[Rfam]
RNA sequence: UCUAAAAAUUUAAAAAUCGCUCGUAUAUUCUCAGUAAUAUGGUCUGAGAGUUUCUAUAGGUUCCCAUUGUAAGAGCCUACUACGAGAUGAGCUGUUACUUUU
Numbered sequence: 001u002c003u004a005a006a007a008a009u010u011u012a013a014a015a016a017u018c019g020c021u022c023g024u025a026u027a028u029u030c031u032c033a034g035u036a037a038u039a040u041g042g043u044c045u046g047a048g049a050g051u052u053u054c055u056a057u058a059g060g061u062u063c064c065c066a067u068u069g070u071a072a073g074a075g076c077c078u079a080c081u082a083c084g085a086g087a088u089g090a091g092c093u094g095u096u097a098c099u100u101u102u
Stems, first nucleotide, its partner, number of pairs: 020086006029049006058078006
RNA: Purine riboswitch aptamer
Organism: Bacillus solimangrovi